[Rfam]
RNA sequence: AGCCAGUGAAGACAAAUGCAAAGACUAACUUUUCUGACACCUACUAUGAGAGCUGAGCUGCAGCUCCUGAUUCUACCUGUAAUCUGAGGCUA
Numbered sequence: 001a002g003c004c005a006g007u008g009a010a011g012a013c014a015a016a017u018g019c020a021a022a023g024a025c026u027a028a029c030u031u032u033u034c035u036g037a038c039a040c041c042u043a044c045u046a047u048g049a050g051a052g053c054u055g056a057g058c059u060g061c062a063g064c065u066c067c068u069g070a071u072u073c074u075a076c077c078u079g080u081a082a083u084c085u086g087a088g089g090c091u092a
Stems, first nucleotide, its partner, number of pairs: 001091004052064004